Shown here is a 46-nucleotide sequence from Nomascus leucogenys, a member of the family "Histone 3' UTR stem-loop".

[Rfam]
RNA sequence: ACAAAGGCUCUUUUCAGAGCCACCUACGAUUUCCAUUAAAGGAGCU
Numbered sequence: 001a002c003a004a005a006g007g008c009u010c011u012u013u014u015c016a017g018a019g020c021c022a023c024c025u026a027c028g029a030u031u032u033c034c035a036u037u038a039a040a041g042g043a044g045c046u
Stems, first nucleotide, its partner, number of pairs: 006021006
The family's consensus secondary structure is taken from published work. The match comes from Rfam's covariance-model search (37 bits). By type it is a cis-regulatory element.